[Rfam]
Nucleotides: 202
Base pairs, nucleotide, nucleotide: 001105002104003103004102005101006100007099008043009042010041011040012039014035015034016033018029019028020027021026046097047096048095049094055090056089057088058087059084061082062081063080064077131194132193133192134191135190136189137188148180149179150178151177152176153175157167158166159165160164
Number, partner (000 for none) and nucleotide at each position: 001105c002104c003103a004102a005101c006100g007099u008043g009042g010041a011040u012039a013000c014035c015034c016033c017000g018029g019028g020027a021026g022000g023000u024000u025000g026021c027020u028019c029018u030000c031000c032000c033016g034015g035014g036000c037000u038000c039012u040011g041010u042009c043008c044000a045000g046097g047096u048095g049094g050000c051000a052000a053000a054000c055090g056089g057088g058087a059084g060000c061082a062081c063080a064077g065000g066000g067000c068000a069000c070000u071000g072000c073000c074000c075000c076000a077064u078000g079000a080063u081062g082061u083000a084059u085000a086000g087058u088057c089056c090055c091000u092000u093000u094049c095048c096047a097046c098000g099007a100006c101005g102004u103003u104002g105001g106000a107000g108000a109000u110000a111000a112000a113000g114000c115000u116000g117000g118000g119000c120000u121000c122000u123000a124000g125000u126000c127000c128000g129000c130000g131194c132193c133192u134191g135190c136189a137188u138000a139000u140000u141000c142000c143000u144000a145000c146000a147000g148180c149179u150178u151177c152176u153175c154000a155000g156000a157167g158166u159165c160164c161000u162000c163000u164160g165159g166158a167157c168000c169000a170000u171000g172000a173000c174000u175153g176152a177151g178150g179149a180148g181000a182000c183000a184000a185000a186000c187000c188137a189136u190135g191134c192133a193132g194131g195000a196000a197000a198000c199000a200000c201000c202000u